[Rfam]
RNA sequence: AAAAAUAGAGAUGGCAAGAUGUCGGCAUAGCUGAAAGCAUUUGAAUAGCGGCUAUGUUGCAUCAAGCCAGCUUAUAUUUU
Numbered sequence: 001a002a003a004a005a006u007a008g009a010g011a012u013g014g015c016a017a018g019a020u021g022u023c024g025g026c027a028u029a030g031c032u033g034a035a036a037g038c039a040u041u042u043g044a045a046u047a048g049c050g051g052c053u054a055u056g057u058u059g060c061a062u063c064a065a066g067c068c069a070g071c072u073u074a075u076a077u078u079u080u
Stems, first nucleotide, its partner, number of pairs: 005075002008073003012069004018063004023059009